Shown here is a 124-nucleotide RNA from Tripterygium wilfordii, a member of the family "Small nucleolar RNA SNORD14".

[Rfam]
RNA sequence: GGUUGAUGAUGAUAAAUUCAAAGGCUUGUUUCUCAAGACAUUCGCAGUGGCCGCCUGAGAACUUUCGCCUUCGCCAGGCUUGAGAGUUAAUGUUGCAAUAAUCCUUCCUUAGAUGUCUGAGACC
Numbered sequence: 001g002g003u004u005g006a007u008g009a010u011g012a013u014a015a016a017u018u019c020a021a022a023g024g025c026u027u028g029u030u031u032c033u034c035a036a037g038a039c040a041u042u043c044g045c046a047g048u049g050g051c052c053g054c055c056u057g058a059g060a061a062c063u064u065u066c067g068c069c070u071u072c073g074c075c076a077g078g079c080u081u082g083a084g085a086g087u088u089a090a091u092g093u094u095g096c097a098a099u100a101a102u103c104c105u106u107c108c109u110u111a112g113a114u115g116u117c118u119g120a121g122a123c124c
Stems, first nucleotide, its partner, number of pairs: 001124004061087006

The match comes from Rfam's covariance-model search (77 bits). Rfam links the family to the GO terms RNA processing and nucleolus. NCBI's taxonomy places the organism under Eukaryota, Embryophyta, Tracheophyta, Magnoliopsida, Tripterygium. Rfam describes the family as follows. U14 small nucleolar RNA (U14 snoRNA) is required for early cleavages of eukaryotic precursor rRNAs.